Overview
Shown here is an 81-nucleotide RNA sequence, a member of the family "DUF3800-VII RNA".
RNA sequence: AAAGAACGCCGCCGGAUAAAGCGAGGGUGUUUUCACCAGCAUGCUAGACAUGUGGUAGUCGCUCCGGGGGUUCUUUUUUAU
Numbered sequence: 001a002a003a004g005a006a007c008g009c010c011g012c013c014g015g016a017u018a019a020a021g022c023g024a025g026g027g028u029g030u031u032u033u034c035a036c037c038a039g040c041a042u043g044c045u046a047g048a049c050a051u052g053u054g055g056u057a058g059u060c061g062c063u064c065c066g067g068g069g070g071u072u073c074u075u076u077u078u079u080a081u
Stems, first nucleotide, its partner, number of pairs: 001076007010068001012067004020063005026037004040052004